[Rfam]
A member of the RNA family "6S / SsrS RNA" from Plesiomonas shigelloides, 184 nucleotides long.
For this family Rfam cites "6S RNA in Rhodobacter sphaeroides: 6S RNA and pRNA transcript levels peak in late exponential phase and gene deletion causes a high salt stress phenotype" (Elkina et al., RNA Biol, 2017).

RNA sequence: UUGUCCCUGAGAUGUUCGCCAGUGGGUUCGUCCCCUGAGCCGAUAUUCAACAUCUCCAGAGUCCGUCGACUAUGCGGCCUGUGAGCAUGCUCAGUUCGCUGAGAAGCCUAAUGGUUGUAACGAUGGGCUCACCUUGAACCGCGGGUUCAAGGGCUACUACCCGCAGCGGCAUCUUGGGGACUCU
Numbered sequence: 001u002u003g004u005c006c007c008u009g010a011g012a013u014g015u016u017c018g019c020c021a022g023u024g025g026g027u028u029c030g031u032c033c034c035c036u037g038a039g040c041c042g043a044u045a046u047u048c049a050a051c052a053u054c055u056c057c058a059g060a061g062u063c064c065g066u067c068g069a070c071u072a073u074g075c076g077g078c079c080u081g082u083g084a085g086c087a088u089g090c091u092c093a094g095u096u097c098g099c100u101g102a103g104a105a106g107c108c109u110a111a112u113g114g115u116u117g118u119a120a121c122g123a124u125g126g127g128c129u130c131a132c133c134u135u136g137a138a139c140c141g142c143g144g145g146u147u148c149a150a151g152g153g154c155u156a157c158u159a160c161c162c163g164c165a166g167c168g169g170c171a172u173c174u175u176g177g178g179g180a181c182u183c184u
Stems, first nucleotide, its partner, number of pairs: 003181013017168003032153003036149006059130003063126006073119007085107002090103005